[Rfam]
RNA sequence: UUCUUAAUAUAAGUAUGUAUCAUGAAAUAUUUAAGACAUACUUAUGCUAAAA
Numbered sequence: 001u002u003c004u005u006a007a008u009a010u011a012a013g014u015a016u017g018u019a020u021c022a023u024g025a026a027a028u029a030u031u032u033a034a035g036a037c038a039u040a041c042u043u044a045u046g047c048u049a050a051a052a
Base pairs, nucleotide, nucleotide: 006048008046009045010044011043012042014040015039016038018036020034022031
Dot-bracket structure: .....(.(((((.(((.(.(.(........)..).).))).))))).)....

Annotation:
Shown here is a 52-nucleotide RNA sequence from Piliocolobus tephrosceles, a member of the family "mir-1302 microRNA precursor family". Its family is annotated with RISC complex and miRNA-mediated post-transcriptional gene silencing in the Gene Ontology. The family has 24 seed sequences and 16,160 matches in Rfam 15.1. For this family Rfam cites "Application of massively parallel sequencing to microRNA profiling and discovery in human embryonic stem cells" (Morin et al., Genome Res, 2008).